Rfam assigns this 211-nucleotide sequence from an uncultured Gallionellaceae bacterium to the family "permuted transfer-messenger RNA". Pairs were carried over by alignment from the consensus structure, which is taken from published work. From the family's description: Bacterial tmRNA, also known as 10Sa RNA or SsrA, is named for its dual tRNA and mRNA-like properties. It is one of the family's seed sequences. Gene Ontology term of the family: RNA catabolic process. Rfam classes the family as a non-coding RNA gene.
RNA sequence: CGAAAACUCCGGCUCAAUAAGGGCUUGUUGGACGGCGGUUCGAUUCCGCCCAUCUCCACCAUGAGUGCAUUAGAUAGCCAGUGUGCUGAUGAUGGGGAUGACCUGGUUUCGACAGUGAGCAGAUAGGUUUCGGGGCGACACGUCAGGCGAUCGACGUAAAUGAAGCAAGCAUGUAAAUGCAAACGAUGAAAACUUUGCUAUGGCGGCCUAA
Numbered sequence: 001c002g003a004a005a006a007c008u009c010c011g012g013c014u015c016a017a018u019a020a021g022g023g024c025u026u027g028u029u030g031g032a033c034g035g036c037g038g039u040u041c042g043a044u045u046c047c048g049c050c051c052a053u054c055u056c057c058a059c060c061a062u063g064a065g066u067g068c069a070u071u072a073g074a075u076a077g078c079c080a081g082u083g084u085g086c087u088g089a090u091g092a093u094g095g096g097g098a099u100g101a102c103c104u105g106g107u108u109u110c111g112a113c114a115g116u117g118a119g120c121a122g123a124u125a126g127g128u129u130u131c132g133g134g135g136c137g138a139c140a141c142g143u144c145a146g147g148c149g150a151u152c153g154a155c156g157u158a159a160a161u162g163a164a165g166c167a168a169g170c171a172u173g174u175a176a177a178u179g180c181a182a183a184c185g186a187u188g189a190a191a192a193c194u195u196u197g198c199u200a201u202g203g204c205g206g207c208c209u210a211a
Stems, first nucleotide, its partner, number of pairs: 001137002012130001015127001024119003028115003034050005051100007141156004